Small nucleolar RNA F1/F2/snoR5a: a 145-nucleotide RNA from Hordeum vulgare. It is annotated as an H/ACA-box small nucleolar RNA. Gene Ontology terms of the family: nucleolus and RNA processing. It scores 61 bits against the family's covariance model. From the family's description: This family contains F1, F2 and snoR5a sequences, all of which are members of the the H/ACA class of snoRNA that guide the sites of modification of uridines to pseudouridines.
RNA sequence: GGAUGCCAUGAGGUAUCUGAUGCUUGGUCUGCUUUCAUGGCCUUGUUUCUUGUUAGAUUGGCGGACAUCGAGAAGCAAACGGGUUUUUGCGACACUGGCUGCUCUCAUACAAGGAGCUUCCUGUUACUAUACCUCGUUUACACCU
Numbered sequence: 001g002g003a004u005g006c007c008a009u010g011a012g013g014u015a016u017c018u019g020a021u022g023c024u025u026g027g028u029c030u031g032c033u034u035u036c037a038u039g040g041c042c043u044u045g046u047u048u049c050u051u052g053u054u055a056g057a058u059u060g061g062c063g064g065a066c067a068u069c070g071a072g073a074a075g076c077a078a079a080c081g082g083g084u085u086u087u088u089g090c091g092a093c094a095c096u097g098g099c100u101g102c103u104c105u106c107a108u109a110c111a112a113g114g115a116g117c118u119u120c121c122u123g124u125u126a127c128u129a130u131a132c133c134u135c136g137u138u139u140a141c142a143c144c145u
Base pairs, nucleotide, nucleotide: 004063005062006061007060008059009057019049020048022046023045026042027041028040029039031038078138079137080136081135094124095123097121098120101117102116103115104114105113